Shown here is a 300-nucleotide RNA sequence from Basidiobolus meristosporus, a member of the family "Metazoan signal recognition particle RNA". The signal recognition particle (SRP) is a universally conserved ribonucleoprotein. It is involved in the co-translational targeting of proteins to membranes. The eukaryotic SRP consists of a 300-nucleotide 7S RNA and six proteins: SRPs 72, 68, 54, 19, 14, and 9. Archaeal SRP consists of a 7S RNA and homologues of the eukaryotic SRP19 and SRP54 proteins. Eukaryotic and archaeal 7S RNAs have very similar secondary structures, as represented by this family. Eight helical elements fold into the Alu and S domains, separated by a long linker region. The Alu domain is thought to mediate the peptide chain elongation retardation function of the SRP. The universally conserved helix which interacts with the SRP54 M domain mediates signal sequence recognition. In eukaryotes and archaea, the SRP19-helix 6 complex is thought to be involved in SRP assembly and stabilises helix 8 for SRP54 binding. The Signal Recognition Particle Database (SRPDB) provides compilations of SRP components, with phylogenetic data and structural illustrations. Many sequences below the threshold for this family are clearly closely related, but are most likely to be SRP RNA derived pseudogenes. The human genome in particular is known to contain a large amount of SRP RNA related sequence, including Alu repeats. While the threshold of this family is set high so as to minimise the number of hits to such regions, it is likely that some remain. For this family Rfam cites "SRPDB: Signal Recognition Particle Database" (Rosenblad et al., Nucleic Acids Res, 2003). Lineage of the source: Eukaryota > Opisthokonta > Fungi > Basidiobolaceae > Basidiobolus meristosporus. The family's RNA type in Rfam is non-coding RNA gene.
RNA sequence: GUUGGGUAGAGUGGCGUCUAUCUGUAGCUCAAGCUUCUGGAGAACUGGUUGGGUGAAGGCUUGAGUAGUGGGUCCCUGCUGAUGAUUUCGAUCCAUGUCGAGGGCGUUGUCCUCUGGAGCCUAGUGUUGACAUUGGCAUCUUCAAGUAAUUGUGAGAUGGCAAGAUUAUUAAAGACUUGGGGAACGCGUGAGGCUGGCAACAGAGCAACGAAAACCAAGCGCACUGGAGCAGUCAGAGGUUGGCAAGUCUGAGUGGAUGGUCACCAGUAGCCGCUACAAUAAAGUUCGACUACCGACUUU
Numbered sequence: 001g002u003u004g005g006g007u008a009g010a011g012u013g014g015c016g017u018c019u020a021u022c023u024g025u026a027g028c029u030c031a032a033g034c035u036u037c038u039g040g041a042g043a044a045c046u047g048g049u050u051g052g053g054u055g056a057a058g059g060c061u062u063g064a065g066u067a068g069u070g071g072g073u074c075c076c077u078g079c080u081g082a083u084g085a086u087u088u089c090g091a092u093c094c095a096u097g098u099c100g101a102g103g104g105c106g107u108u109g110u111c112c113u114c115u116g117g118a119g120c121c122u123a124g125u126g127u128u129g130a131c132a133u134u135g136g137c138a139u140c141u142u143c144a145a146g147u148a149a150u151u152g153u154g155a156g157a158u159g160g161c162a163a164g165a166u167u168a169u170u171a172a173a174g175a176c177u178u179g180g181g182g183a184a185c186g187c188g189u190g191a192g193g194c195u196g197g198c199a200a201c202a203g204a205g206c207a208a209c210g211a212a213a214a215c216c217a218a219g220c221g222c223a224c225u226g227g228a229g230c231a232g233u234c235a236g237a238g239g240u241u242g243g244c245a246a247g248u249c250u251g252a253g254u255g256g257a258u259g260g261u262c263a264c265c266a267g268u269a270g271c272c273g274c275u276a277c278a279a280u281a282a283a284g285u286u287c288g289a290c291u292a293c294c295g296a297c298u299u300u
Base pairs, nucleotide, nucleotide: 001045002044003043004023005022006021007020008019009018010017028042029041030040047298048297049296050295051294052293053290054289058286059285060284061283062282065277066276067275068274069273070272071271076270077269078268079267080266081265083263088260089259090258092257093256094255095254096253098251102250103249104248105247107246108245109244110243111239112238113237114236115235116234117233119230120229121227122226123225124224125223126222127221128168129167130166133163134162135161137159138158139157140156141155142154143152144151145150169173176219177218178217179216180215187210188209189208194203195202196201
Dot-bracket structure: ((((((((((......)))))))....(((.........)))))).((((((((...(((((..(((((((....((((((.(....(((.(((((.(...((((.(((((((((((.((((((((((((..(((.(((((((((....))).)))))).)))..)))(...)..(((((......(((....(((....)))....)))....))))).))))))).))..)))))))...))))))))).))))))))..).)))))))))))))....)))))..))..))))))..